[Rfam]
RNA: Small nucleolar RNA R44/J54/Z268 family
Organism: Acer yangbiense
RNA sequence: UGUGCAAAUGAUAAUAAAGCAGACAGGGACCCUGCACUCCAUUGGAGAUCGAUGAUGAUUUGUCUAUGGGAAUCUCUUUGAUGCACA
Numbered sequence: 001u002g003u004g005c006a007a008a009u010g011a012u013a014a015u016a017a018a019g020c021a022g023a024c025a026g027g028g029a030c031c032c033u034g035c036a037c038u039c040c041a042u043u044g045g046a047g048a049u050c051g052a053u054g055a056u057g058a059u060u061u062g063u064c065u066a067u068g069g070g071a072a073u074c075u076c077u078u079u080g081a082u083g084c085a086c087a
Base pairs, nucleotide, nucleotide: 002086003085004084005083006082